[Rfam]
RNA sequence: AAUGAACACUGUUGUGCUCACCAUAUAAUGUCGGGAUAUGGCCGACAGUCUCUACAUCUCACCGUAAAUGAGAUACUAUGGUGCUUCUUCUUUCAUGG
Dot-bracket structure: ..................(((((((...((((((.......))))))........((((((.......))))))..)))))))...............